The family of this 100-nucleotide sequence from Paenibacillus sp. Leaf72 is "Purine riboswitch aptamer". Lineage of the source: Bacteria > Bacillota > Caryophanales > Paenibacillaceae > Paenibacillus.

RNA sequence: CGUUCAUUAUAGUGUUGGUCUCGUAUAAUCUCGGGGAUUGGCCCGAAAGUUUCUACCCGAAAACCACAAUUUUCGGACUACGAGCAAGCUUGAAGCUGGU
Numbered sequence: 001c002g003u004u005c006a007u008u009a010u011a012g013u014g015u016u017g018g019u020c021u022c023g024u025a026u027a028a029u030c031u032c033g034g035g036g037a038u039u040g041g042c043c044c045g046a047a048a049g050u051u052u053c054u055a056c057c058c059g060a061a062a063a064c065c066a067c068a069a070u071u072u073u074c075g076g077a078c079u080a081c082g083a084g085c086a087a088g089c090u091u092g093a094a095g096c097u098g099g100u
Stems, first nucleotide, its partner, number of pairs: 020084006029048001031046005057076007
Gene Ontology term of the family: purine nucleobase biosynthetic process.